[Rfam]
RNA: Bacterial RNase P class A
Organism: Parvularcula maris
RNA sequence: UCAGGCGGCUGGGCGACCGCGGGGCUUUGGUCUCGAGGAAAGUCCGGGCUCCAUGGCGGCAGGGUGCCGGGUAACGCCCGGCCAGCGUGAGCUGAGGGACAGCGCCACAGAGAAUAUCCGCCUCGCUAGACGGGGUCAGGGUGAAAAGGUGCGGUAAGAGCGCACCGCCGGGGCGGCAACGUCCUCGGGCAUAGGCAAGCCCCGCCCGGAGCAAGACCGAAUAGGGACGCCGCGCCCUUCGCAAGAAGGGCAGGCCCGCCGUCAGGCUGAGGGGUCCGGGUUGGUUGCAGGAGCGUCCUCGCAAGGGGGCGCCUCAGAUGAAUGGUCGCCCAGGGGUGCUCGCACCCUGGACAGAACCCGGCUUACAGGCCGCCUGAUGCU
Numbered sequence: 001u002c003a004g005g006c007g008g009c010u011g012g013g014c015g016a017c018c019g020c021g022g023g024g025c026u027u028u029g030g031u032c033u034c035g036a037g038g039a040a041a042g043u044c045c046g047g048g049c050u051c052c053a054u055g056g057c058g059g060c061a062g063g064g065u066g067c068c069g070g071g072u073a074a075c076g077c078c079c080g081g082c083c084a085g086c087g088u089g090a091g092c093u094g095a096g097g098g099a100c101a102g103c104g105c106c107a108c109a110g111a112g113a114a115u116a117u118c119c120g121c122c123u124c125g126c127u128a129g130a131c132g133g134g135g136u137c138a139g140g141g142u143g144a145a146a147a148g149g150u151g152c153g154g155u156a157a158g159a160g161c162g163c164a165c166c167g168c169c170g171g172g173g174c175g176g177c178a179a180c181g182u183c184c185u186c187g188g189g190c191a192u193a194g195g196c197a198a199g200c201c202c203c204g205c206c207c208g209g210a211g212c213a214a215g216a217c218c219g220a221a222u223a224g225g226g227a228c229g230c231c232g233c234g235c236c237c238u239u240c241g242c243a244a245g246a247a248g249g250g251c252a253g254g255c256c257c258g259c260c261g262u263c264a265g266g267c268u269g270a271g272g273g274g275u276c277c278g279g280g281u282u283g284g285u286u287g288c289a290g291g292a293g294c295g296u297c298c299u300c301g302c303a304a305g306g307g308g309g310c311g312c313c314u315c316a317g318a319u320g321a322a323u324g325g326u327c328g329c330c331c332a333g334g335g336g337u338g339c340u341c342g343c344a345c346c347c348u349g350g351a352c353a354g355a356a357c358c359c360g361g362c363u364u365a366c367a368g369g370c371c372g373c374c375u376g377a378u379g380c381u
Base pairs, nucleotide, nucleotide: 001377002376003375004374005373006372007371008370009369010368011366012330013329014328015327016326017325018324020035021034022033023032024031025030040364041363042362044361045360046359047358048357049211050210051209052208057265059263062207063206064205065204066203067081068080069079070078071077082096083094084093085092086091097202098201102200103199104196105195106194118140119139120136121135122134123133124132125131148166149165150164151163152162153161167190168188169187170186171185172184173182174181175180215286216285217284218283225277226276227275228274230272257269258268260266293312294311295310296309297308298307299306300305